A member of the RNA family "TPP riboswitch aptamer (THI element)" from Chitinimonas taiwanensis, 103 nucleotides long. Lineage of the source: Bacteria > Pseudomonadota > Neisseriales > Chitinibacteraceae > Chitinimonas taiwanensis. A search with the family's covariance model found it, with a score of 66 bits.

RNA sequence: CCGAGACGCUAGGGGUUCUGUGCCGCAUCGCCGGCACGGAUGAGAAAAACCCUUUGCACCUGACCCGGUUAACACCGGCGUAGGGAAGCGUCGCACGGUUGUC
Numbered sequence: 001c002c003g004a005g006a007c008g009c010u011a012g013g014g015g016u017u018c019u020g021u022g023c024c025g026c027a028u029c030g031c032c033g034g035c036a037c038g039g040a041u042g043a044g045a046a047a048a049a050c051c052c053u054u055u056g057c058a059c060c061u062g063a064c065c066c067g068g069u070u071a072a073c074a075c076c077g078g079c080g081u082a083g084g085g086a087a088g089c090g091u092c093g094c095a096c097g098g099u100u101g102u103c
Stems, first nucleotide, its partner, number of pairs: 006091005011053004016047001017040009059084004065078004